[Rfam]
RNA sequence: CUUGCCGGGGAUCGCCCCCCGUCAGCGCGUUGCGCCCACGGGGGCGUUACUG
Numbered sequence: 001c002u003u004g005c006c007g008g009g010g011a012u013c014g015c016c017c018c019c020c021g022u023c024a025g026c027g028c029g030u031u032g033c034g035c036c037c038a039c040g041g042g043g044g045c046g047u048u049a050c051u052g
Base pairs, nucleotide, nucleotide: 016044017043018042019041020040021039022038025035026034027033028032
RNA: ffh sRNA